Record summary
Shown here is a 139-nucleotide sequence from Actinoallomurus iriomotensis, a member of the family "c-di-AMP riboswitch aptamer (ydaO/yuaA leader)". Taxonomically the source falls in Actinoallomurus (Bacteria, Actinomycetota, Streptosporangiales, Thermomonosporaceae). This family represents a conserved RNA structure found upstream of the ydaO and yuaA genes in Bacillus subtilis and related genes in other bacteria. The match comes from Rfam's covariance-model search (87 bits).
RNA sequence: CACGACCGUCGGCCGAAUCCCUGCAGCUCAGGGAACCGGGGACCCACGUACUCGGGGUGAAUCCGCAGCGCCCGGCGCUCGGUAGGGCAUCUCCCGCCCGAACCCGGCAGCUAACCCGGUAGGCGUCAGGAGAGGAGUU
Numbered sequence: 001c002a003c004g005a006c007c008g009u010c011g012g013c014c015g016a017a018u019c020c021c022u023g024c025a026g027c028u029c030a031g032g033g034a035a036c037c038g039g040g041g042a043c044c045c046a047c048g049u050a051c052u053c054g055g056g057g058u059g060a061a062u063c064c065g066c067a068g069c070g071c072c073c074g075g076c077g078c079u080c081g082g083u084a085g086g087g088c089a090u091c092u093c094c095c096g097c098c099c100g101a102a103c104c105c106g107g108c109a110g111c112u113a114a115c116c117c118g119g120u121a122g123g124c125g126u127c128a129g130g131a132g133a134g135g136a137g138u139u
Base pairs, nucleotide, nucleotide: 012124013123014122018034019033020032021031022030023029035120036119037118038117039116040115045054055105056104057103063082064081065080085099086098087097088096